[Rfam]
RNA: SAH (S-adenosyl-L-homocysteine) riboswitch aptamer
RNA sequence: GUUUCCGAGGAGCGCUGCAAGGCGUCGGGUUUUCGCCCGGCCCCAGGCUCGGAAGCCGCCGUCCGGCGGCAUCGCCACAACCGCGCUCGCCUGUC
Numbered sequence: 001g002u003u004u005c006c007g008a009g010g011a012g013c014g015c016u017g018c019a020a021g022g023c024g025u026c027g028g029g030u031u032u033u034c035g036c037c038c039g040g041c042c043c044c045a046g047g048c049u050c051g052g053a054a055g056c057c058g059c060c061g062u063c064c065g066g067c068g069g070c071a072u073c074g075c076c077a078c079a080a081c082c083g084c085g086c087u088c089g090c091c092u093g094u095c
Base pairs, nucleotide, nucleotide: 002055003054004053005052006051007050008049021042022041023040